[Rfam]
RNA: TPP riboswitch aptamer (THI element)
Organism: Chromohalobacter israelensis
RNA sequence: GUCUCUGGAUAGGGGUGCCCGCCGACCGUGGCGGGCUGAGAGCGCCCGGCGCAACCCUGGAACCUGAUCCGGUUAACACCGGCGGAGGAAACGCCAGAGCGUGCCGU
Numbered sequence: 001g002u003c004u005c006u007g008g009a010u011a012g013g014g015g016u017g018c019c020c021g022c023c024g025a026c027c028g029u030g031g032c033g034g035g036c037u038g039a040g041a042g043c044g045c046c047c048g049g050c051g052c053a054a055c056c057c058u059g060g061a062a063c064c065u066g067a068u069c070c071g072g073u074u075a076a077c078a079c080c081g082g083c084g085g086a087g088g089a090a091a092c093g094c095c096a097g098a099g100c101g102u103g104c105c106g107u
Stems, first nucleotide, its partner, number of pairs: 007094001010091001011058004017036007043051003063088003069082004
Dot-bracket structure: ......(..(((((..(((((((......)))))))......(((...)))...))))....(((...((((......))))...)))..)..).............